[Rfam]
RNA sequence: CCGCAGUGAUGGUAAUAUUUUUCAUCAACAGAGCUCUCCUAGUGAGUAUUGAUACAUUCACUGGGUCUGAGUGA
Numbered sequence: 001c002c003g004c005a006g007u008g009a010u011g012g013u014a015a016u017a018u019u020u021u022u023c024a025u026c027a028a029c030a031g032a033g034c035u036c037u038c039c040u041a042g043u044g045a046g047u048a049u050u051g052a053u054a055c056a057u058u059c060a061c062u063g064g065g066u067c068u069g070a071g072u073g074a
Stems, first nucleotide, its partner, number of pairs: 002073003008026004
Dot-bracket structure: .(((...((((...........))))............................................))).

A member of the RNA family "Small nucleolar RNA SNORD56" from Chinchilla lanigera, 74 nucleotides long. Pairs were carried over by alignment from the consensus structure, which was predicted with PFOLD. Rfam 15.1 lists 796 matches to the family in 432 species. On this family, see Galardi et al., Mol Cell Biol 2002: "Purified box C/D snoRNPs are able to reproduce site-specific 2'-O-methylation of target RNA in vitro". Rfam links the family to the GO terms RNA processing and nucleolus.